Notes: A member of the RNA family "Small nucleolar RNA SNORA33" from Oryctolagus cuniculus, 132 nucleotides long. It is annotated as an H/ACA-box small nucleolar RNA. Its family is annotated with nucleolus and RNA processing in the Gene Ontology. The sequence is in the family's curated seed alignment. Lineage of the source: Eukaryota > Vertebrata > Mammalia > Euarchontoglires > Oryctolagus.
[Rfam]
RNA sequence: AAGCCAGCCAAUGAAUCUGCUUACUACCUAUUGUGUUUCUGCAGAAAUCUAGAAAAAGCUGGCAAUAGUAGUGCCAUGUUACGAGCCUUAAAGACAUUGAAGUCUUUCAGGUCCCUGAAAAUGGCUACAACA
Numbered sequence: 001a002a003g004c005c006a007g008c009c010a011a012u013g014a015a016u017c018u019g020c021u022u023a024c025u026a027c028c029u030a031u032u033g034u035g036u037u038u039c040u041g042c043a044g045a046a047a048u049c050u051a052g053a054a055a056a057a058g059c060u061g062g063c064a065a066u067a068g069u070a071g072u073g074c075c076a077u078g079u080u081a082c083g084a085g086c087c088u089u090a091a092a093g094a095c096a097u098u099g100a101a102g103u104c105u106u107u108c109a110g111g112u113c114c115c116u117g118a119a120a121a122u123g124g125c126u127a128c129a130a131c132a
Base pairs, nucleotide, nucleotide: 003063004062005061006060007059016045017044018043019042020041073125074124075123076122085112086111087110088109090107091106093104094103095102